[Rfam]
RNA sequence: GUUUGCCAGAAAUUCAGGUAAGCAGAUUUGCAUUGAUUCAUCCCUUACAAAUG
Numbered sequence: 001g002u003u004u005g006c007c008a009g010a011a012a013u014u015c016a017g018g019u020a021a022g023c024a025g026a027u028u029u030g031c032a033u034u035g036a037u038u039c040a041u042c043c044c045u046u047a048c049a050a051a052u053g
Base pairs, nucleotide, nucleotide: 001023002022003021004020005019006018007017031053032052034050037047
RNA: ES003 sRNA